[Rfam]
RNA sequence: GGCGUAAAGGGCGCGUAGGCGGCUAUGUAAGUCGGAUGUGAAAGCCCCGGGCUCAACCUGGGAAUUGCAUUCGAUACUGCGUAGCUAGAGUCCGGUAGAGGGUAGUGGAAUUCCCGGUGUAGCGGUGAAAUGCGUAGAUAUCGGGAGGAACACCAGUGGCGAAGGCGACUGCCUGGACCGAGACUGACGCUGAGGCGCGAAAGCGUGGGGAGCAAACAGGAUUAGAUACCCUGGUAGUCCACGCUGUAAACGCUGAGGACUAGCUGUUCGGUUCGCACUAGAACUGAGUGGCGCAGCUAACGCAUUAAGUCCUCCGCCUGGGGAGUACGGCCGCAAGGCUAAAACUCAAAGGAAU
Numbered sequence: 001g002g003c004g005u006a007a008a009g010g011g012c013g014c015g016u017a018g019g020c021g022g023c024u025a026u027g028u029a030a031g032u033c034g035g036a037u038g039u040g041a042a043a044g045c046c047c048c049g050g051g052c053u054c055a056a057c058c059u060g061g062g063a064a065u066u067g068c069a070u071u072c073g074a075u076a077c078u079g080c081g082u083a084g085c086u087a088g089a090g091u092c093c094g095g096u097a098g099a100g101g102g103u104a105g106u107g108g109a110a111u112u113c114c115c116g117g118u119g120u121a122g123c124g125g126u127g128a129a130a131u132g133c134g135u136a137g138a139u140a141u142c143g144g145g146a147g148g149a150a151c152a153c154c155a156g157u158g159g160c161g162a163a164g165g166c167g168a169c170u171g172c173c174u175g176g177a178c179c180g181a182g183a184c185u186g187a188c189g190c191u192g193a194g195g196c197g198c199g200a201a202a203g204c205g206u207g208g209g210g211a212g213c214a215a216a217c218a219g220g221a222u223u224a225g226a227u228a229c230c231c232u233g234g235u236a237g238u239c240c241a242c243g244c245u246g247u248a249a250a251c252g253c254u255g256a257g258g259a260c261u262a263g264c265u266g267u268u269c270g271g272u273u274c275g276c277a278c279u280a281g282a283a284c285u286g287a288g289u290g291g292c293g294c295a296g297c298u299a300a301c302g303c304a305u306u307a308a309g310u311c312c313u314c315c316g317c318c319u320g321g322g323g324a325g326u327a328c329g330g331c332c333g334c335a336a337g338g339c340u341a342a343a344a345c346u347c348a349a350a351g352g353a354a355u
Stems, first nucleotide, its partner, number of pairs: 001318003009315001011198004016192001018191003022085007030078002032074009046062006089185003093180004100174007107151001111147008122133003159166002203244006212238002217233004255314006263292012296303002320347003329340004